[Rfam]
RNA sequence: AUGGAGCAUUAUGGAUGGGUCCUCCUAGAUUUGGUUGUUUCCAUAGUUUAUGCUCCAAAGAACAAAUUGGCUUUGGAUGACUACACAGUAAGAGAUUUGCUGUGUGGACAGAUACGGGUCAAACAUCU
Numbered sequence: 001a002u003g004g005a006g007c008a009u010u011a012u013g014g015a016u017g018g019g020u021c022c023u024c025c026u027a028g029a030u031u032u033g034g035u036u037g038u039u040u041c042c043a044u045a046g047u048u049u050a051u052g053c054u055c056c057a058a059a060g061a062a063c064a065a066a067u068u069g070g071c072u073u074u075g076g077a078u079g080a081c082u083a084c085a086c087a088g089u090a091a092g093a094g095a096u097u098u099g100c101u102g103u104g105u106g107g108a109c110a111g112a113u114a115c116g117g118g119u120c121a122a123a124c125a126u127c128u
Stems, first nucleotide, its partner, number of pairs: 002057006015044004022037001025034001067122007081107003086102003
RNA: Small Cajal body specific RNA 8